This 153-nucleotide sequence from Zhengella mangrovi belongs to the Rfam family "Alphaproteobacterial sRNA ar9".
The literature on the family includes a 2012 paper in RNA Biol by del Val et al., "A survey of sRNA families in alpha-proteobacteria".
RNA sequence: ACAAACAGGGACCGGAAACCACAAGCCGGAUCUCACUUCGCGGUCAAAGUCUUGGGAGGAUGUGAUCCUGGCGCGGUAAUCGCAGCCGCCGUUCAGUCGGAUAAUGGAUCAACGCGCAACUCGUCAGCAAGGCUUCGGGCCUUGCUUUUUUUU
Numbered sequence: 001a002c003a004a005a006c007a008g009g010g011a012c013c014g015g016a017a018a019c020c021a022c023a024a025g026c027c028g029g030a031u032c033u034c035a036c037u038u039c040g041c042g043g044u045c046a047a048a049g050u051c052u053u054g055g056g057a058g059g060a061u062g063u064g065a066u067c068c069u070g071g072c073g074c075g076g077u078a079a080u081c082g083c084a085g086c087c088g089c090c091g092u093u094c095a096g097u098c099g100g101a102u103a104a105u106g107g108a109u110c111a112a113c114g115c116g117c118a119a120c121u122c123g124u125c126a127g128c129a130a131g132g133c134u135u136c137g138g139g140c141c142u143u144g145c146u147u148u149u150u151u152u153u
Stems, first nucleotide, its partner, number of pairs: 003152003010032002012029004039116004049061004064110005070087003073083003089100003126146008

The pairing is the family consensus, mapped onto this sequence.